[Rfam]
RNA: Bacterial large signal recognition particle RNA
Organism: Lachnospiraceae bacterium A2
RNA sequence: CCGAGCAGCUGGGGCGUUAGCGGUGCCCUGUACCAACAACCCGCUAUAGUUGGAGUGAUGCUUUGCCCCGGGUUUUUGCCUGUGGGGCUGCCUUUUAUAAGUGGUGAUGACGUUUGGGUCUUACGCAAUGGAACUCUGUGAACCGUGUCAGGUUGGGAACAAAGCAGCACUAAGCAGAACCUUUCAUGUGCCGUAAGGGCGCCUGGGCCGAGCUAACUGUAAAAGUAACGCCCAUGGUCAGGAUUCAAAGCAGAGCGCUCGG
Numbered sequence: 001c002c003g004a005g006c007a008g009c010u011g012g013g014g015c016g017u018u019a020g021c022g023g024u025g026c027c028c029u030g031u032a033c034c035a036a037c038a039a040c041c042c043g044c045u046a047u048a049g050u051u052g053g054a055g056u057g058a059u060g061c062u063u064u065g066c067c068c069c070g071g072g073u074u075u076u077u078g079c080c081u082g083u084g085g086g087g088c089u090g091c092c093u094u095u096u097a098u099a100a101g102u103g104g105u106g107a108u109g110a111c112g113u114u115u116g117g118g119u120c121u122u123a124c125g126c127a128a129u130g131g132a133a134c135u136c137u138g139u140g141a142a143c144c145g146u147g148u149c150a151g152g153u154u155g156g157g158a159a160c161a162a163a164g165c166a167g168c169a170c171u172a173a174g175c176a177g178a179a180c181c182u183u184u185c186a187u188g189u190g191c192c193g194u195a196a197g198g199g200c201g202c203c204u205g206g207g208c209c210g211a212g213c214u215a216a217c218u219g220u221a222a223a224a225g226u227a228a229c230g231c232c233c234a235u236g237g238u239c240a241g242g243a244u245u246c247a248a249a250g251c252a253g254a255g256c257g258c259u260c261g262g
Base pairs, nucleotide, nucleotide: 001262002261003260004259005258006257008056009055010054011029012028013027014026015025016024017023018022033053034052035051036050037049061255062254063253064252065251066250070246071245072244073243074242076241077240078239080237081236082235083234084233085232089227090226093224094223095222096221097220098219101217102216103214104213105212112208113207114206115205116204117203118202119201120197121196122195123194124193125192126188127187129186130185131184132183133182135178136177137176138175139174145170146169147168148167153162154161155160